[Rfam]
RNA sequence: UUAUCUGUCAAAAGGGAGUAGCGUUGAAAUCAUCCGUGAUUUCAAAAUAAAGUCGUCAUUACAUGGGUUACCCAUCGGCUUUAUUGGCAUUGUUUGCUUAGCGAGACUUUUGCCUGAAGGGCAAAUGUCU
Numbered sequence: 001u002u003a004u005c006u007g008u009c010a011a012a013a014g015g016g017a018g019u020a021g022c023g024u025u026g027a028a029a030u031c032a033u034c035c036g037u038g039a040u041u042u043c044a045a046a047a048u049a050a051a052g053u054c055g056u057c058a059u060u061a062c063a064u065g066g067g068u069u070a071c072c073c074a075u076c077g078g079c080u081u082u083a084u085u086g087g088c089a090u091u092g093u094u095u096g097c098u099u100a101g102c103g104a105g106a107c108u109u110u111u112g113c114c115u116g117a118a119g120g121g122c123a124a125a126u127g128u129c130u
Stems, first nucleotide, its partner, number of pairs: 025044007046085010063075005
RNA: Manganese Mn2+ riboswitch aptamer (yybP-ykoY)
Organism: Thermoactinomyces mirandus